[Rfam]
RNA sequence: UUGCCCACUCGAGGCUGUGCGUUGUGUGUUGACUGGCCAUUAACGAAGGGUAGAAAAAGUCUCCCUGUAAACCUGGGCCAGGAGCUCCACUCCUGCCCCUGGACCUGUUGGGAGGAACACUU
Numbered sequence: 001u002u003g004c005c006c007a008c009u010c011g012a013g014g015c016u017g018u019g020c021g022u023u024g025u026g027u028g029u030u031g032a033c034u035g036g037c038c039a040u041u042a043a044c045g046a047a048g049g050g051u052a053g054a055a056a057a058a059g060u061c062u063c064c065c066u067g068u069a070a071a072c073c074u075g076g077g078c079c080a081g082g083a084g085c086u087c088c089a090c091u092c093c094u095g096c097c098c099c100u101g102g103a104c105c106u107g108u109u110g111g112g113a114g115g116a117a118c119a120c121u122u
Stems, first nucleotide, its partner, number of pairs: 002052005009045001014041001016039002020036001061114005072102002075099003080094003084091001

Small nucleolar RNA SNORA26: a 122-nucleotide sequence from Perca fluviatilis. It scores 42 bits against the family's covariance model. The organism belongs to Perca, within Eukaryota. The snoRNA HBI-6 belong to the H/ACA family of snoRNAs, guiding the pseudouridylation of position U4522 if the 28S rRNA. HBI-6 is the human orthologue of mouse MBI-6 snoRNA. Pairs were carried over by alignment from the consensus structure, which was predicted with RNAalifold. The family is grouped with related families in Rfam's "SNORA27 clan".